RNA sequence: GUGCAGCAAGAGAGAAAGUUGCCUGAGACGCAGCUUUGUUUUGCCUUGAAACUUGCUGUUCCGGCAACCCGAAGGGGACAUUCUCCCAGCAUUCUCUCAGGCAACUUUAUCUCUUGCCGUUC
Numbered sequence: 001g002u003g004c005a006g007c008a009a010g011a012g013a014g015a016a017a018g019u020u021g022c023c024u025g026a027g028a029c030g031c032a033g034c035u036u037u038g039u040u041u042u043g044c045c046u047u048g049a050a051a052c053u054u055g056c057u058g059u060u061c062c063g064g065c066a067a068c069c070c071g072a073a074g075g076g077g078a079c080a081u082u083c084u085c086c087c088a089g090c091a092u093u094c095u096c097u098c099a100g101g102c103a104a105c106u107u108u109a110u111c112u113c114u115u116g117c118c119g120u121u122c
Base pairs, nucleotide, nucleotide: 006117007116008115009114010113011112012111013110020066021065022064023063069101070100071098072097075096076095077094081089082088
Shown here is a 122-nucleotide RNA sequence, a member of the family "Glycine riboswitch aptamer". The match comes from Rfam's covariance-model search (35 bits). This family represents the bacterial glycine riboswitch. The base pairs follow the family's consensus structure.